[Rfam]
RNA sequence: GCCAAAUGAUGUAAAUUGGACAACAUUAGCACUCAGUGCAAAGAUGACCUUUAUCUAUCACCCUAGGCUGAUGGCU
Number, nucleotide and partner (000 for none) at each position: 001g075002c074003c073004a072005a000006a000007u000008g000009a000010u000011g000012u000013a000014a000015a000016u000017u000018g000019g000020a000021c000022a000023a000024c000025a000026u000027u000028a000029g039030c038031a037032c036033u000034c000035a000036g032037u031038g030039c029040a000041a000042a000043g000044a000045u000046g000047a000048c000049c000050u000051u000052u000053a000054u000055c000056u000057a000058u000059c000060a000061c000062c000063c000064u000065a000066g000067g000068c000069u000070g000071a000072u004073g003074g002075c001076u000